Rfam assigns this 98-nucleotide RNA from Dufourea novaeangliae to the family "mir-2788 microRNA precursor family".
Gene Ontology terms of the family: RISC complex and miRNA-mediated post-transcriptional gene silencing.
The base pairs follow the family's consensus structure, which was predicted with RNAalifold.
NCBI's taxonomy places the organism under Eukaryota, Panarthropoda, Hexapoda, Pterygota, Dufourea.
A search with the family's covariance model found it, with a score of 70 bits.
RNA sequence: CGAGUUUGUUGUGGCAGGGUUGGGGUUUCUAUGCGGCAUGUGCCUUGAUUUUAAAAAUGUAAUGCCCUUCGAAACCUCAAAAAUGUCCAACACUUGUC
Numbered sequence: 001c002g003a004g005u006u007u008g009u010u011g012u013g014g015c016a017g018g019g020u021u022g023g024g025g026u027u028u029c030u031a032u033g034c035g036g037c038a039u040g041u042g043c044c045u046u047g048a049u050u051u052u053a054a055a056a057a058u059g060u061a062a063u064g065c066c067c068u069u070c071g072a073a074a075c076c077u078c079a080a081a082a083a084u085g086u087c088c089a090a091c092a093c094u095u096g097u098c
Stems, first nucleotide, its partner, number of pairs: 008094001010092003014086003021079009031069001033067001035066005041061003